RNA sequence: CAAAGCAAGAAGAAGCGCCCGCUUCUCACCUGAUGACGCGUAUGCAGUUUACAGGUAUAAACAGUUUCAUUUCUAAGAAUGGACUAAGUGUGGGCGUAUUGUGCCUACGCUUUUUUGUACUU
Numbered sequence: 001c002a003a004a005g006c007a008a009g010a011a012g013a014a015g016c017g018c019c020c021g022c023u024u025c026u027c028a029c030c031u032g033a034u035g036a037c038g039c040g041u042a043u044g045c046a047g048u049u050u051a052c053a054g055g056u057a058u059a060a061a062c063a064g065u066u067u068c069a070u071u072u073c074u075a076a077g078a079a080u081g082g083a084c085u086a087a088g089u090g091u092g093g094g095c096g097u098a099u100u101g102u103g104c105c106u107a108c109g110c111u112u113u114u115u116u117g118u119a120c121u122u
Base pairs, nucleotide, nucleotide: 011026012025013024014023015022016021028056029055030054035049036048037047038045039044089109090108091107092106093105094104095103096102097101
RNA: Ribosomal protein L20 leader